[Rfam]
RNA sequence: GUUCCCAAUGAUGCGUAUACCAACCAUGCUAAUGCUGAGGUCAUUUGCUGAAGAACUCAUUAUGUUUUUUUUAGGGAACU
Numbered sequence: 001g002u003u004c005c006c007a008a009u010g011a012u013g014c015g016u017a018u019a020c021c022a023a024c025c026a027u028g029c030u031a032a033u034g035c036u037g038a039g040g041u042c043a044u045u046u047g048c049u050g051a052a053g054a055a056c057u058c059a060u061u062a063u064g065u066u067u068u069u070u071u072u073a074g075g076g077a078a079c080u
Base pairs, nucleotide, nucleotide: 001079002078003077004076005075
Dot-bracket structure: (((((.....................................................................))))).
This 80-nucleotide sequence from Phoenix dactylifera belongs to the Rfam family "Small nucleolar RNA snoR53Y". Rfam links the family to the GO terms RNA processing and nucleolus. Lineage of the source: Eukaryota > Magnoliopsida > Arecaceae > Coryphoideae > Phoenix. Its Rfam clan is "snoR53 clan".